[Rfam]
RNA sequence: GUCGGCGUCGUCACCGUCGAACCUACCUCCGUUCCCGUUACCACUGAACUGCCCGGCCGCACCAACGCGUUCCUCGUGGCGCAGGUGCGUGCACGGGUGGACGGCAUCGUGCUGCGGCGCGAGUUCACGGAAGGCAGCAUGGUCAAGGCCGGCCAGCGGCUCUACAAGAUCGA
Numbered sequence: 001g002u003c004g005g006c007g008u009c010g011u012c013a014c015c016g017u018c019g020a021a022c023c024u025a026c027c028u029c030c031g032u033u034c035c036c037g038u039u040a041c042c043a044c045u046g047a048a049c050u051g052c053c054c055g056g057c058c059g060c061a062c063c064a065a066c067g068c069g070u071u072c073c074u075c076g077u078g079g080c081g082c083a084g085g086u087g088c089g090u091g092c093a094c095g096g097g098u099g100g101a102c103g104g105c106a107u108c109g110u111g112c113u114g115c116g117g118c119g120c121g122a123g124u125u126c127a128c129g130g131a132a133g134g135c136a137g138c139a140u141g142g143u144c145a146a147g148g149c150c151g152g153c154c155a156g157c158g159g160c161u162c163u164a165c166a167a168g169a170u171c172g173a
Base pairs, nucleotide, nucleotide: 004053005052006051007050008047009046010045011043016038018037019036023031055150056149057148058147061143062142063141069135070134072133074131075130079092080091081090082089094121095120097118100115102114103113104112105111106110157172158171160168161167
RNA: Burkholderia RNA 14